RNA sequence: AGAAGACCUCCCGUAGAUCGAUGCUUGAAGCAAACGCAGAUUGUAAAAAAGCGGGAUGACGUCUCGACCGUCACCCCGC
Numbered sequence: 001a002g003a004a005g006a007c008c009u010c011c012c013g014u015a016g017a018u019c020g021a022u023g024c025u026u027g028a029a030g031c032a033a034a035c036g037c038a039g040a041u042u043g044u045a046a047a048a049a050a051g052c053g054g055g056a057u058g059a060c061g062u063c064u065c066g067a068c069c070g071u072c073a074c075c076c077c078g079c
Stems, first nucleotide, its partner, number of pairs: 005042001008039002023031003051079004057073005
Shown here is a 79-nucleotide RNA from Pseudomonas sp. TTU2014-080ASC, a member of the family "Pseudomonas sRNA P31". Rfam classes the family as a small RNA. The family's consensus secondary structure was predicted with CMfinder. For this family Rfam cites "Identification of 17 Pseudomonas aeruginosa sRNAs and prediction of sRNA-encoding genes in 10 diverse pathogens using the bioinformatic tool sRNAPredict2" (Livny et al., Nucleic Acids Res, 2006).